Shown here is a 110-nucleotide RNA from Lentilactobacillus hilgardii, a member of the family "PyrR binding site".

RNA sequence: AAGACCUUUAAUAUUAACCCCGUGAGGUUAAGAAGGAAUCGGUGAACCUAAGUCUAACUUGGGAGAAACUACAACCUCUUUACCCAACGGCGGUAAAGAGGUUUUUUAAU
Number, nucleotide and partner (000 for none) at each position: 001a000002a000003g000004a000005c036006c035007u034008u033009u032010a000011a000012u000013a000014u031015u030016a029017a028018c027019c026020c000021c000022g000023u000024g000025a000026g019027g018028u017029u016030a015031a014032g009033a008034a007035g006036g005037a000038a000039u000040c000041g000042g000043u067044g000045a000046a000047c063048c062049u061050a060051a059052g058053u000054c000055u000056a000057a000058c052059u051060u050061g049062g048063g047064a000065g000066a000067a043068a000069c000070u000071a105072c000073a103074a102075c101076c100077u099078c098079u097080u096081u095082a094083c093084c092085c000086a000087a000088c000089g000090g000091c000092g084093g083094u082095a081096a080097a079098g078099a077100g076101g075102u074103u073104u000105u071106u000107u000108a000109a000110u000

The base pairs follow the family's consensus structure, which is taken from published work.
The family's RNA type in Rfam is cis-regulatory element.
The organism belongs to Lentilactobacillus hilgardii, within Bacteria.
This family represents the PyrR binding site and terminator structure. This RNA structure is found upstream of a variety of genes involved in pyrimidine biosynthesis and transport. The alignment also includes a portion of the antiterminator structure.